[Rfam]
RNA sequence: CCGCAGACAAGUCUGAAUGACUUGAUUCUCCUUAGGAUCAAUAGACUUUGUGUUGCGAUGUUGUGUUUGCAAACUCGUAUUUCGAGUAUGUGGUGUUUCACCACUUGUUCUGUGGCUCCCAGCCACAAAGCAUACUUCCUGUAUUUAUUUUGACCUGUCUGUCAAAUAUUUCACACCGCCUUCCGAUGGGCGGUGUAUUUUUAU
Numbered sequence: 001c002c003g004c005a006g007a008c009a010a011g012u013c014u015g016a017a018u019g020a021c022u023u024g025a026u027u028c029u030c031c032u033u034a035g036g037a038u039c040a041a042u043a044g045a046c047u048u049u050g051u052g053u054u055g056c057g058a059u060g061u062u063g064u065g066u067u068u069g070c071a072a073a074c075u076c077g078u079a080u081u082u083c084g085a086g087u088a089u090g091u092g093g094u095g096u097u098u099c100a101c102c103a104c105u106u107g108u109u110c111u112g113u114g115g116c117u118c119c120c121a122g123c124c125a126c127a128a129a130g131c132a133u134a135c136u137u138c139c140u141g142u143a144u145u146u147a148u149u150u151u152g153a154c155c156u157g158u159c160u161g162u163c164a165a166a167u168a169u170u171u172c173a174c175a176c177c178g179c180c181u182u183c184c185g186a187u188g189g190g191c192g193g194u195g196u197a198u199u200u201u202u203a204u
Stems, first nucleotide, its partner, number of pairs: 010047004017042001022041008073087005089127006145166002173196007